Rfam assigns this 103-nucleotide sequence from Daucus carota to the family "Small nucleolar RNA Z266". The family has 11 seed sequences and 719 matches in Rfam 15.1. Pairs were carried over by alignment from the consensus structure, which was predicted with PFOLD. It is annotated as a C/D-box small nucleolar RNA. The source organism's lineage runs through Eukaryota, Embryophyta, Magnoliopsida, Scandiceae and Daucus carota.
RNA sequence: UUUGAGCAAGAAUGAUGAUACAAUUAGAUGUGUUAAAGGUGAAGACCUUAAUGAACUCAACAAAUUGAGGCAUUAUUCAUUCAUACUACCUGACUUGCUCCGU
Dot-bracket structure: .(.(((((((...................................................................................))))))).).